This 92-nucleotide RNA sequence from Flavobacterium sp. FPG59 belongs to the Rfam family "SAM-I/IV (S-adenosyl methionine) riboswitch aptamer".

RNA sequence: UUAUCACGAAUCCUUCAAUAGGAUAGCAACCUGCAACAACAAGCAAGGUGCUAAAACGAUAAGCCAAAUCUUUUGGAAAAAAUGUUGUUUAC
Dot-bracket structure: (((((....(((((.....)))))(((..(((((....[...)).))).))).....))))).((((.....)))).........]......

Taxonomically the source falls in Flavobacterium (Bacteria, Pseudomonadati, Bacteroidota, Flavobacteriales).
On this family, see Weinberg et al., RNA 2008: "The aptamer core of SAM-IV riboswitches mimics the ligand-binding site of SAM-I riboswitches".
Pairs were carried over by alignment from the consensus structure, which is taken from published work.